[Rfam]
RNA sequence: AUACUUAAUUUCCUAGCCUGAAAAGGCUAAGGGCUGGUGGCUAAAUAGCCACCGGCCU
Numbered sequence: 001a002u003a004c005u006u007a008a009u010u011u012c013c014u015a016g017c018c019u020g021a022a023a024a025g026g027c028u029a030a031g032g033g034c035u036g037g038u039g040g041c042u043a044a045a046u047a048g049c050c051a052c053c054g055g056c057c058u
Stems, first nucleotide, its partner, number of pairs: 014029005032057010
RNA: Pseudomonas sRNA P26
Organism: Veronia pacifica